[Rfam]
RNA sequence: GUUAUGUGCUUUUGUUUUAGACUUCAAACGCUUUGCCAUUUUUAAAAACCGGUAAAGCGUAGGAAUUCUAAAACAAAUAUCAC
Number, nucleotide and partner (000 for none) at each position: 001g000002u000003u000004a000005u000006g000007u000008g000009c000010u077011u076012u075013u000014g074015u073016u072017u071018u070019a069020g068021a067022c000023u065024u064025c063026a000027a000028a060029c059030g058031c057032u056033u055034u054035g000036c052037c051038a000039u000040u000041u000042u000043u000044a000045a000046a000047a000048a000049c000050c000051g037052g036053u000054a034055a033056a032057g031058c030059g029060u028061a000062g000063g025064a024065a023066u000067u021068c020069u019070a018071a017072a016073a015074c014075a012076a011077a010078u000079a000080u000081c000082a000083c000
Notes:
The record is an 83-nucleotide sequence from Trichomalopsis sarcophagae, which matches "mir-927 microRNA precursor family" in Rfam. It scores 65 bits against the family's covariance model. The family's consensus secondary structure was predicted with RNAalifold. The organism belongs to Trichomalopsis, within Eukaryota.